[Rfam]
RNA sequence: GUGUUCUCGCUAUGAUGAAGGCUAUGUUGGUAGGGACAACUGACUAUGUUGAUGAAUACCAACGGCUCUGAUGGCGGAGC
Number, nucleotide and partner (000 for none) at each position: 001g080002u079003g000004u077005u076006c000007u000008c000009g000010c000011u000012a000013u000014g000015a000016u000017g000018a000019a000020g000021g000022c000023u000024a000025u000026g000027u000028u000029g000030g000031u000032a000033g000034g000035g000036a000037c000038a000039a000040c000041u000042g000043a000044c000045u000046a000047u000048g000049u000050u000051g000052a000053u000054g000055a000056a000057u000058a000059c000060c000061a000062a000063c000064g000065g000066c000067u000068c000069u000070g000071a000072u000073g000074g000075c000076g005077g004078a000079g002080c001
Small nucleolar RNA SNORD74: an 80-nucleotide RNA from Mesocricetus auratus. It is annotated as a C/D-box small nucleolar RNA. It scores 85 bits against the family's covariance model. For this family Rfam cites "Purified box C/D snoRNPs are able to reproduce site-specific 2'-O-methylation of target RNA in vitro" (Galardi et al., Mol Cell Biol, 2002). The base pairs follow the family's consensus structure, which was predicted with PFOLD. The organism belongs to Mesocricetus, within Eukaryota. Rfam links the family to the GO terms nucleolus and RNA processing. The family has 22 seed sequences and 929 matches in Rfam 15.1.